[Rfam]
RNA sequence: AUGCAUCCAACACGAAUUGAACCCGUGACUUCUCAAUUAUGAGUUGGGUGCUUGUACCAUUCAACAUGGAUGU
Numbered sequence: 001a002u003g004c005a006u007c008c009a010a011c012a013c014g015a016a017u018u019g020a021a022c023c024c025g026u027g028a029c030u031u032c033u034c035a036a037u038u039a040u041g042a043g044u045u046g047g048g049u050g051c052u053u054g055u056a057c058c059a060u061u062c063a064a065c066a067u068g069g070a071u072g073u
Stems, first nucleotide, its partner, number of pairs: 003073006010026002014022001039067003044064007
Annotation
This 73-nucleotide RNA sequence from Taxus chinensis belongs to the Rfam family "Plastid-ycf2 5UTR RNA". The organism belongs to Taxus, within Eukaryota. The family's consensus secondary structure was predicted with LocARNA. The match comes from Rfam's covariance-model search (66 bits). Rfam's curators write: Plastid ycf2 is a non-coding RNA (ncRNA) recognised in plastids. It was found in the prime untranslated region (5UTR) of ycf2 genes, it presents a tRNA-like motif which suggests it can be involved in mRNA maturation, particularly involved in defining the precise 5' end of the transcript. By type it is a cis-regulatory element.